Rfam assigns this 91-nucleotide RNA sequence from Olsenella sp. oral taxon 809 to the family "Selenocysteine transfer RNA". Taxonomically the source falls in Olsenella sp. oral taxon 809 (Bacteria, Bacillati, Actinomycetota, Coriobacteriia). The literature on the family includes a 2000 paper in FEBS Lett by Mizutani and Goto, "Eukaryotic selenocysteine tRNA has the 9/4 secondary structure".

Nucleotides: 091
Stems, first nucleotide, its partner, number of pairs: 001091008011027005017022001029045005048065005068082004
Number, partner (000 for none) and nucleotide at each position: 001091g002090g003089g004088a005087g006086c007085a008084g009000a010000u011027g012026g013025g014024c015023g016000a017022c018000u019000g020000g021000u022017g023015c024014g025013c026012c027011c028000u029045c030044u031043g032042g033041u034000c035000u036000u037000c038000a039000a040000a041033a042032c043031c044030a045029g046000u047000u048065c049064g050063g051062g052061c053000a054000g055000g056000c057000a058000a059000c060000u061052g062051c063050u064049c065048g066000g067000g068082u069081g070080g071079g072000u073000u074000c075000g076000a077000u078000u079071c080070c081069c082068a083000c084008c085007u086006g087005c088004u089003c090002c091001c